This 79-nucleotide sequence from Stanieria cyanosphaera belongs to the Rfam family "Cyano-1 RNA". The match comes from Rfam's covariance-model search (55 bits). The base pairs follow the family's consensus structure, which is taken from published work.
RNA sequence: AAUUGUGUGAGGAGUAAGUGUAAAAGAGAAAGACUUUGGGGUCGAAACACGGCAAGACUCCCAAGGUCUUUUUCAUUCU
Numbered sequence: 001a002a003u004u005g006u007g008u009g010a011g012g013a014g015u016a017a018g019u020g021u022a023a024a025a026g027a028g029a030a031a032g033a034c035u036u037u038g039g040g041g042u043c044g045a046a047a048c049a050c051g052g053c054a055a056g057a058c059u060c061c062c063a064a065g066g067u068c069u070u071u072u073u074c075a076u077u078c079u
Stems, first nucleotide, its partner, number of pairs: 015075001026074005033067002038062003041058003